[Rfam]
RNA sequence: GAGAUAUGAUGAAUAUACUGAUUGGUCCGUGUUUCUGAUUACCAUGACUGAUAAACCAGUGUUUCAUUCUGAUCUC
Numbered sequence: 001g002a003g004a005u006a007u008g009a010u011g012a013a014u015a016u017a018c019u020g021a022u023u024g025g026u027c028c029g030u031g032u033u034u035c036u037g038a039u040u041a042c043c044a045u046g047a048c049u050g051a052u053a054a055a056c057c058a059g060u061g062u063u064u065c066a067u068u069c070u071g072a073u074c075u076c
Base pairs, nucleotide, nucleotide: 001076002075003074004073